[Rfam]
RNA sequence: CAGACUGUACUUCAGGGAUCAUUCUAUAGUCGUUUCUAGAGAAGUUCUCUGAAUGUGUAGAGCACUGAAACCACGAGGAGGAGGUGUGGUGUCUGUCUGAGCAUGAAGCUGGUUAUUGGUGUUGCUUCUGCAGCUGCCAUUAGCCAUUGAUGAUCGCUCUUCUCUUCUUUCGGGAGAGUGAGAGGGAGAGAAUGCCAUCUGAGUAAA
Numbered sequence: 001c002a003g004a005c006u007g008u009a010c011u012u013c014a015g016g017g018a019u020c021a022u023u024c025u026a027u028a029g030u031c032g033u034u035u036c037u038a039g040a041g042a043a044g045u046u047c048u049c050u051g052a053a054u055g056u057g058u059a060g061a062g063c064a065c066u067g068a069a070a071c072c073a074c075g076a077g078g079a080g081g082a083g084g085u086g087u088g089g090u091g092u093c094u095g096u097c098u099g100a101g102c103a104u105g106a107a108g109c110u111g112g113u114u115a116u117u118g119g120u121g122u123u124g125c126u127u128c129u130g131c132a133g134c135u136g137c138c139a140u141u142a143g144c145c146a147u148u149g150a151u152g153a154u155c156g157c158u159c160u161u162c163u164c165u166u167c168u169u170u171c172g173g174g175a176g177a178g179u180g181a182g183a184g185g186g187a188g189a190g191a192a193u194g195c196c197a198u199c200u201g202a203g204u205a206a207a
Stems, first nucleotide, its partner, number of pairs: 002037003006032002009030003014025004046061003050057001073204002086195003090191001092189003096186003101157002111145004117139004121134005160181002162178007
The record is a 207-nucleotide RNA sequence from Tursiops truncatus, which matches "Small nucleolar RNA U3" in Rfam.
The sequence is in the family's curated seed alignment.
About the family: Small nucleolar RNAs (snoRNAs) are involved in the processing and modification of rRNA in the nucleolus. There are two main classes of snoRNAs: the box C/D class, and the box H/ACA class. U3 snoRNA is a member of the box C/D class.
The family has 87 seed sequences and 19,072 matches in Rfam 15.1.